Source information: Shown here is a 211-nucleotide sequence from Ameiurus melas, a member of the family "Small nucleolar RNA SNORA53". The snoRNA ACA53 belongs to the H/ACA family of pseudouridylation guide snoRNAs. Rfam 15.1 lists 1,090 matches to the family in 800 species.
[Rfam]
RNA sequence: CACACGCUCCUUAGAUCCACCUCUGGGGAGUCUUCUAGCUCAGAGCGUCACAGCUCCAGUGUGGGGGCUCCCAGCAGCUUUUCUGGCUGGACGGUUGGAGGUGCUUGAGUCAUUGGCGUGUGAGAGCAAUCUACCUGCUCCUUCAGCCCAGUUUCUGCCCUGGCUCCCAUAGUGGCCAUCACCAGGGUAGACAAGCUGGAGGGCGGACAAC
Numbered sequence: 001c002a003c004a005c006g007c008u009c010c011u012u013a014g015a016u017c018c019a020c021c022u023c024u025g026g027g028g029a030g031u032c033u034u035c036u037a038g039c040u041c042a043g044a045g046c047g048u049c050a051c052a053g054c055u056c057c058a059g060u061g062u063g064g065g066g067g068c069u070c071c072c073a074g075c076a077g078c079u080u081u082u083c084u085g086g087c088u089g090g091a092c093g094g095u096u097g098g099a100g101g102u103g104c105u106u107g108a109g110u111c112a113u114u115g116g117c118g119u120g121u122g123a124g125a126g127c128a129a130u131c132u133a134c135c136u137g138c139u140c141c142u143u144c145a146g147c148c149c150a151g152u153u154u155c156u157g158c159c160c161u162g163g164c165u166c167c168c169a170u171a172g173u174g175g176c177c178a179u180c181a182c183c184a185g186g187g188u189a190g191a192c193a194a195g196c197u198g199g200a201g202g203g204c205g206g207a208c209a210a211c
Base pairs, nucleotide, nucleotide: 002121003120004119005118006117007116008115010109011108012107013106014105018103019102020101021100022099023098024097025096026072027071028070029069030068032066033065034064035063038060039059040058043056044055045054046053075089076088077087078086079085135206136205137204138203139202142200144198145197146196147195154191155190156189157188158187159186160185161184162183163182167175168174169173